A member of the RNA family "Eukaryotic large subunit ribosomal RNA" from Aplysia californica, 412 nucleotides of a longer RNA.
Rfam links the family to the GO terms ribosome and structural constituent of ribosome.
The source organism's lineage runs through Eukaryota, Metazoa, Tectipleura, Aplysiidae and Aplysia.
It is one of the family's seed sequences.
RNA sequence: CGGGUGGAUCCGCAAAGUCGGCCCGCGGAACUCAGCUCGGCGCGCGGCCGGGGCGCUGCGGUUCGGGAUCCUCGCGACCCGGCCGCGGUGCCUCGCCGGGCCCCGCCGUGUGCACUUUCCGCGGGCAGAGCGCCACGACCGGUCUCGGGGCGGCUACAAGUCGCCGGGGAAGGUAGGCGCGAGCGGCAACGUUCGCGCUGUUACAGCCCCGGCAGGCCAGCCGCCCGCGGACCGAGGGACGACCGCGUCGGCCUUCGAGGCUACCCGGCCAUCCGGGGGAGUUCGACUGGUGGGGACUGGGCAACCGUGCCCGCCGACCGCUCCUCCUCGACGGCCCGGGCUAGCCGGGGUCUCGCGCUUAGGGUCGGUGGCGAAUUGGUCGGCCUUCCACCCGACCCGUCUUGAAACACGG
Numbered sequence: 001c002g003g004g005u006g007g008a009u010c011c012g013c014a015a016a017g018u019c020g021g022c023c024c025g026c027g028g029a030a031c032u033c034a035g036c037u038c039g040g041c042g043c044g045c046g047g048c049c050g051g052g053g054c055g056c057u058g059c060g061g062u063u064c065g066g067g068a069u070c071c072u073c074g075c076g077a078c079c080c081g082g083c084c085g086c087g088g089u090g091c092c093u094c095g096c097c098g099g100g101c102c103c104c105g106c107c108g109u110g111u112g113c114a115c116u117u118u119c120c121g122c123g124g125g126c127a128g129a130g131c132g133c134c135a136c137g138a139c140c141g142g143u144c145u146c147g148g149g150g151c152g153g154c155u156a157c158a159a160g161u162c163g164c165c166g167g168g169g170a171a172g173g174u175a176g177g178c179g180c181g182a183g184c185g186g187c188a189a190c191g192u193u194c195g196c197g198c199u200g201u202u203a204c205a206g207c208c209c210c211g212g213c214a215g216g217c218c219a220g221c222c223g224c225c226c227g228c229g230g231a232c233c234g235a236g237g238g239a240c241g242a243c244c245g246c247g248u249c250g251g252c253c254u255u256c257g258a259g260g261c262u263a264c265c266c267g268g269c270c271a272u273c274c275g276g277g278g279g280a281g282u283u284c285g286a287c288u289g290g291u292g293g294g295g296a297c298u299g300g301g302c303a304a305c306c307g308u309g310c311c312c313g314c315c316g317a318c319c320g321c322u323c324c325u326c327c328u329c330g331a332c333g334g335c336c337c338g339g340g341c342u343a344g345c346c347g348g349g350g351u352c353u354c355g356c357g358c359u360u361a362g363g364g365u366c367g368g369u370g371g372c373g374a375a376u377u378g379g380u381c382g383g384c385c386u387u388c389c390a391c392c393c394g395a396c397c398c399g400u401c402u403u404g405a406a407a408c409a410c411g412g
Base pairs, nucleotide, nucleotide: 001394002393003392004391005390006389007388008387010383011382012381018127021126022125023124024123025122026121027120028119029118030117131373132372133371134370135369136368397412398411399410400409